Annotation
The record is a 54-nucleotide RNA from Oncorhynchus tshawytscha, which matches "UnaL2 LINE 3' element" in Rfam.

RNA sequence: UGCUCUCACUGCUGUAAGUCCCUCUGGAUAAGAGCAUCUACUAAAUGACUAAAA
Dot-bracket structure: ............((((.....((((.....))))....))).)...........

Rfam describes the family as follows. The eel long interspersed element (LINE) UnaL2 and its partner short interspersed element (SINE) share a conserved 3' tail containing a stem-loop that is critical for their retrotransposition. Presumably, the first step of retrotransposition is the recognition of their 3' tails by UnaL2-encoded reverse transcriptase. The solution structure of a 17-nucleotide RNA derived from the 3' tail of UnaL2 was determined by NMR.